[Rfam]
The family of this 139-nucleotide sequence from Thermaerobacillus caldiproteolyticus is "c-di-AMP riboswitch aptamer (ydaO/yuaA leader)".

RNA sequence: AGUAUUAAUUCGCUGAAUCCAUAAUGGAGCGGGGGAACCAUGUUGUAACGCGCGUUACUUGGGGUGAAUCCGUAAUGGAAGGGCUACUCUCAUAGUCCUAACCCGACAGCUAACCUCGUAAGCGUUUUGGGAGGGAUGU
Numbered sequence: 001a002g003u004a005u006u007a008a009u010u011c012g013c014u015g016a017a018u019c020c021a022u023a024a025u026g027g028a029g030c031g032g033g034g035g036a037a038c039c040a041u042g043u044u045g046u047a048a049c050g051c052g053c054g055u056u057a058c059u060u061g062g063g064g065u066g067a068a069u070c071c072g073u074a075a076u077g078g079a080a081g082g083g084c085u086a087c088u089c090u091c092a093u094a095g096u097c098c099u100a101a102c103c104c105g106a107c108a109g110c111u112a113a114c115c116u117c118g119u120a121a122g123c124g125u126u127u128u129g130g131g132a133g134g135g136a137u138g139u
Stems, first nucleotide, its partner, number of pairs: 011124004018028003029119006039061002062104003070078003081098004
A search with the family's covariance model found it, with a score of 104 bits. The source organism's lineage runs through Bacteria, Bacillota, Bacilli, Caryophanales and Thermaerobacillus. Pairs were carried over by alignment from the consensus structure.